[Rfam]
RNA sequence: AUACUCCCUCCGUCCCAAAAUAUAAGAACGUUUUUGACACUAGCGUAGUGUCAAAAACAUUCUUGUAUUUUGGGAUGGAGGGAGUAC
Numbered sequence: 001a002u003a004c005u006c007c008c009u010c011c012g013u014c015c016c017a018a019a020a021u022a023u024a025a026g027a028a029c030g031u032u033u034u035u036g037a038c039a040c041u042a043g044c045g046u047a048g049u050g051u052c053a054a055a056a057a058c059a060u061u062c063u064u065g066u067a068u069u070u071u072g073g074g075a076u077g078g079a080g081g082g083a084g085u086a087c
Stems, first nucleotide, its partner, number of pairs: 003085003007081005013075005019069010030058012
MIR1120/MIR1122 microRNA precursor family: an 87-nucleotide RNA sequence from Triticum urartu. The family has 6 seed sequences and 44,765 matches in Rfam 15.1. The family's consensus secondary structure was predicted with RNAalifold.